[Rfam]
RNA sequence: AAAUGAUAAAAAUAUCUCUCAGGGCCUUGAUUAAGACCAAGAGAACAAUUUUUGGAAACCCUAUUCUCAGGAAUAGGGUG
Number, nucleotide and partner (000 for none) at each position: 001a000002a000003a000004u000005g000006a000007u000008a000009a000010a000011a000012a000013u000014a000015u000016c000017u000018c000019u000020c000021a000022g000023g038024g037025c000026c035027u034028u033029g000030a000031u000032u000033a028034a027035g026036a000037c024038c023039a000040a000041g000042a000043g000044a000045a000046c000047a000048a000049u000050u000051u000052u000053u000054g000055g000056a000057a000058a079059c078060c077061c076062u075063a074064u073065u072066c071067u000068c000069a000070g000071g066072a065073a064074u063075a062076g061077g060078g059079u058080g000
Rfam assigns this 80-nucleotide RNA from Caenorhabditis brenneri to the family "SmY spliceosomal RNA". A search with the family's covariance model found it, with a score of 77 bits. Rfam classes the family as a spliceosomal small nuclear RNA. The literature on the family includes a 2007 paper in RNA by MacMorris et al., "A novel family of C. elegans snRNPs contains proteins associated with trans-splicing". Taxonomically the source falls in Caenorhabditis (Eukaryota, Metazoa, Rhabditida, Rhabditina).